Record summary:
The record is a 121-nucleotide sequence from Vibrio gelatinilyticus, which matches "Phenylalanine leader peptide" in Rfam. NCBI's taxonomy places the organism under Bacteria, Pseudomonadota, Vibrionales, Vibrionaceae, Vibrio. Its family is annotated with cellular amino acid metabolic process in the Gene Ontology. The family's consensus secondary structure was predicted with CMfinder.
RNA sequence: CAUAACACUAACGCGUUUCUUUUUGACUUCUUUUUUCUCCAAUAAAAAUUGGGGGCACCAUCGUUUUGCAAAAGAUAAGUCAAAAACGAACGGAAAGCCUCCCACUGGGAGGUUUUUUUAU
Numbered sequence: 001c002a003u004a005a006c007a008c009u010a011a012c013g014c015g016u017u018u019c020u021u022u023u024u025g026a027c028u029u030c031u032u033u034u035u036u037c038u039c040c041a042a043u044a045a046a047a048a049u050u051g052g053g054g055g056c057a058c059c060a061u062c063g064u065u066u067u068g069c070a071a072a073a074g075a076u077a078a079g080u081c082a083a084a085a086a087c088g089a090a091c092g093g094a095a096a097g098c099c100u101c102c103c104a105c106u107g108g109g110a111g112g113u114u115u116u117u118u119u120a121u
Base pairs, nucleotide, nucleotide: 015091016090017089018088020086021085022084023083024082025081026080027079028078029077031075032074033073035071036070038053039052040051041050054065055064056063094116095115096114097113098112099111100110101109102108103107